[Rfam]
RNA sequence: CGGUAGAAAAGAUGGUGUUUAAACCACGCCUUCUACCAAUAUAGUAAAUAAAUAGG
Dot-bracket structure: .((((((.....((((......))))..[[[))))))................]]]
The record is a 56-nucleotide RNA from Crinivirus flavisolani, which matches "3'-terminal pseudoknot in PYVV" in Rfam.
The sequence is in the family's curated seed alignment.
The literature on the family includes a 2004 paper in J Gen Virol by Livieratos et al., "Analysis of the RNA of Potato yellow vein virus: evidence for a tripartite genome and conserved 3'-terminal structures among members of the genus Crinivirus".